The record is a 101-nucleotide RNA from Nocardioides albidus, which matches "Glycine riboswitch aptamer" in Rfam.
[Rfam]
RNA sequence: GCGAACUCUGGAAAGUCGGACCGGAUCCACCGGCCCGCACCCACGGUGCAAGCCGCCUCCGGGCGGUGAAGCUCUCAGGUAGCGAUGACAGAGCGGGGAGG
Numbered sequence: 001g002c003g004a005a006c007u008c009u010g011g012a013a014a015g016u017c018g019g020a021c022c023g024g025a026u027c028c029a030c031c032g033g034c035c036c037g038c039a040c041c042c043a044c045g046g047u048g049c050a051a052g053c054c055g056c057c058u059c060c061g062g063g064c065g066g067u068g069a070a071g072c073u074c075u076c077a078g079g080u081a082g083c084g085a086u087g088a089c090a091g092a093g094c095g096g097g098g099a100g101g
Stems, first nucleotide, its partner, number of pairs: 006093005017037003039080003043075001046074001048072001052067004
A search with the family's covariance model found it, with a score of 37 bits.